[Rfam]
RNA sequence: AAAAUUUAUGAAGCGCCUGAGCCCUAGUGGAUGACGAGGUAUGAGGUUAUCGAAAAUCGGCGGAUGCCUCAAAGGUUUCACAGCCUAAACAUUUUACAAAAAAUAAAAGUAAUUUUAUAACAAAAUAAAUGUAGUGAGUCUCU
Numbered sequence: 001a002a003a004a005u006u007u008a009u010g011a012a013g014c015g016c017c018u019g020a021g022c023c024c025u026a027g028u029g030g031a032u033g034a035c036g037a038g039g040u041a042u043g044a045g046g047u048u049a050u051c052g053a054a055a056a057u058c059g060g061c062g063g064a065u066g067c068c069u070c071a072a073a074g075g076u077u078u079c080a081c082a083g084c085c086u087a088a089a090c091a092u093u094u095u096a097c098a099a100a101a102a103a104u105a106a107a108a109g110u111a112a113u114u115u116u117a118u119a120a121c122a123a124a125a126u127a128a129a130u131g132u133a134g135u136g137a138g139u140c141u142c143u
Stems, first nucleotide, its partner, number of pairs: 020032001022030002042071005050060004072086001074084001076082001089132006103118006
glmS glucosamine-6-phosphate activated ribozyme aptamer: a 143-nucleotide RNA from Peptoniphilus harei. Lineage of the source: Bacteria > Bacillota > Tissierellales > Peptoniphilaceae > Peptoniphilus harei. By type it is a riboswitch.